[Rfam]
RNA sequence: GGCCAGGGGAAUUCCUGGCAGAGUGAUUUUGAACCCGAUGACUGAAUCACAUUGCCAGGGAUUUCCAAUGGCU
Numbered sequence: 001g002g003c004c005a006g007g008g009g010a011a012u013u014c015c016u017g018g019c020a021g022a023g024u025g026a027u028u029u030u031g032a033a034c035c036c037g038a039u040g041a042c043u044g045a046a047u048c049a050c051a052u053u054g055c056c057a058g059g060g061a062u063u064u065c066c067a068a069u070g071g072c073u
Stems, first nucleotide, its partner, number of pairs: 001073001003071003009066001011062011023050007
This 73-nucleotide RNA from Danionella cerebrum belongs to the Rfam family "mir-23 microRNA precursor family". Taxonomically the source falls in Danionella (Eukaryota, Clupeocephala, Cypriniformes, Danioninae). It scores 58 bits against the family's covariance model.